The record is a 58-nucleotide RNA sequence from Canis lupus, which matches "mir-1306 microRNA precursor family" in Rfam. The organism belongs to Canis lupus, within Eukaryota. The family's consensus secondary structure was predicted with RNAalifold. The family has 19 seed sequences and 661 matches in Rfam 15.1. For this family Rfam cites "Application of massively parallel sequencing to microRNA profiling and discovery in human embryonic stem cells" (Morin et al., Genome Res, 2008).
RNA sequence: CCACCUCCCCUGCAAACGUCCAGUGAUGCAGAGGUAAUGGACGUUGGCUCUGGUGGUG
Numbered sequence: 001c002c003a004c005c006u007c008c009c010c011u012g013c014a015a016a017c018g019u020c021c022a023g024u025g026a027u028g029c030a031g032a033g034g035u036a037a038u039g040g041a042c043g044u045u046g047g048c049u050c051u052g053g054u055g056g057u058g
Stems, first nucleotide, its partner, number of pairs: 002058004007053002012048002015045008026035002